The record is a 119-nucleotide RNA from Glycine max, which matches "MIR1520 microRNA precursor family" in Rfam.
Clan: MIR1520 microRNA precursor clan.
Pairs were carried over by alignment from the consensus structure, which was predicted with RNAalifold.
It scores 112 bits against the family's covariance model.
RNA sequence: UUCUUAUCAGAUGAUUACGGUCAUGUCUCAUAUUUUGAUUGGAUAUCAACUCAUGGAAGAUGAAAUGCAUUGUUAUUUUCAUUGAUGAAUCAUAACAUGACACAUGACAAUCAUCAUCC
Numbered sequence: 001u002u003c004u005u006a007u008c009a010g011a012u013g014a015u016u017a018c019g020g021u022c023a024u025g026u027c028u029c030a031u032a033u034u035u036u037g038a039u040u041g042g043a044u045a046u047c048a049a050c051u052c053a054u055g056g057a058a059g060a061u062g063a064a065a066u067g068c069a070u071u072g073u074u075a076u077u078u079u080c081a082u083u084g085a086u087g088a089a090u091c092a093u094a095a096c097a098u099g100a101c102a103c104a105u106g107a108c109a110a111u112c113a114u115c116a117u118c119c
Stems, first nucleotide, its partner, number of pairs: 020108004025103002029099003033095002036092001038090003